A member of the RNA family "Lysine riboswitch aptamer" from Fictibacillus enclensis, 179 nucleotides long. Its family is annotated with lysine biosynthetic process in the Gene Ontology. A search with the family's covariance model found it, with a score of 116 bits. Rfam describes the family as follows. Riboswitches are metabolite binding domains within certain messenger RNAs that serve as precision sensors for their corresponding targets. Allosteric rearrangement of mRNA structure is mediated by ligand binding, and this results in modulation of gene expression. This family includes riboswitches that sense lysine in a number of genes involved in lysine metabolism, including lysC. The base pairs follow the family's consensus structure, which is taken from published work.
RNA sequence: UAAUGGGGUAGAGGCGCAAAGCGGAUGAGUAGGAUGAUGGAGUGAAUGGACAUGAUGAAAUCAUUUUAAAGGCCAAUUUGCCGAAGUGUGGGAAUGAUCCAUCCAUUCUCAUGCUGGGCCGCUGCCGAACAGACAGCGGACUGUCACUGCAAUGCUUGCAGUGGAGAACUAUUCCGGCA
Dot-bracket structure: .....((((((....(((((..((.......(((((((.....................)))))))......))..)))))...((((((((((((.......))))))))))))((.((((((.(.....).)))))).)).(((((((.......)))))))....)))))).....